[Rfam]
RNA sequence: GAUUUAUAAAGAAUAAGGGAGAGGAAGUCUCGACGAUCUUAUAGCAACUUUUCAGAAAACUGGAAUAAGUGCUCUACUUUUUCUGAUAGCAAUUAUGCCGUCAGAAUAUAAAUU
Number, nucleotide and partner (000 for none) at each position: 001g114002a113003u112004u111005u110006a109007u108008a107009a000010a000011g000012a000013a042014u041015a040016a039017g038018g000019g000020a000021g031022a030023g029024g000025a000026a082027g081028u000029c023030u022031c021032g000033a000034c000035g000036a000037u000038c017039u016040u015041a014042u013043a073044g072045c071046a070047a000048c069049u068050u065051u064052u063053c062054a000055g000056a000057a000058a000059a000060c000061u000062g053063g052064a051065a050066u000067a000068a049069g048070u046071g045072c044073u043074c000075u000076a000077c000078u000079u106080u000081u027082u026083c000084u103085g102086a101087u100088a000089g098090c000091a000092a000093u000094u000095a000096u000097g000098c089099c000100g087101u086102c085103a084104g000105a000106a079107u008108a007109u006110a005111a004112a003113u002114u001
RNA: SAM riboswitch aptamer (S box leader)
Organism: Mucilaginibacter sp.